[Rfam]
RNA sequence: AAAUAAAGUUUUGGUGUCUUAUGAUGAAGCUUCAUAGGGCAGAUUCUGAGUUGAGAAAUCGAAUUUCUCUCCACUGAUUCUCUCUAUAUGCCAUCUGAAGACACUGUAUAUUGC
Numbered sequence: 001a002a003a004u005a006a007a008g009u010u011u012u013g014g015u016g017u018c019u020u021a022u023g024a025u026g027a028a029g030c031u032u033c034a035u036a037g038g039g040c041a042g043a044u045u046c047u048g049a050g051u052u053g054a055g056a057a058a059u060c061g062a063a064u065u066u067c068u069c070u071c072c073a074c075u076g077a078u079u080c081u082c083u084c085u086a087u088a089u090g091c092c093a094u095c096u097g098a099a100g101a102c103a104c105u106g107u108a109u110a111u112u113g114c
Base pairs, nucleotide, nucleotide: 013105014104015103016102017101018100019099029094033090034089035088037083038082039081042078045077046076048074050072053069054068055067056066057065058064

A member of the RNA family "Small nucleolar RNA SNORD90" from Toxostoma redivivum, 114 nucleotides long. It is annotated as a C/D-box small nucleolar RNA. Rfam 15.1 lists 545 matches to the family in 524 species. Rfam describes the family as follows. snoRNA HBII-295 belongs to the family of C/D snoRNAs. It is the human orthologue of the mouse MBII-295 and has no identified RNA target. The organism belongs to Toxostoma, within Eukaryota.